[Rfam]
RNA: Mammalian CPEB3 ribozyme
Organism: Alligator sinensis
RNA sequence: AGAGGUUAUAAGUUUAAGGCCAAAGCAGAAGCGCUCAGGGUGCAGCCUGUCAGAUACCAAUGAAUCUGAGAGUUCUGCU
Numbered sequence: 001a002g003a004g005g006u007u008a009u010a011a012g013u014u015u016a017a018g019g020c021c022a023a024a025g026c027a028g029a030a031g032c033g034c035u036c037a038g039g040g041u042g043c044a045g046c047c048u049g050u051c052a053g054a055u056a057c058c059a060a061u062g063a064a065u066c067u068g069a070g071a072g073u074u075c076u077g078c079u
Base pairs, nucleotide, nucleotide: 018047019046020045024079025078026077027076028075029074030073031043032042033041051068052067053066054065055064057062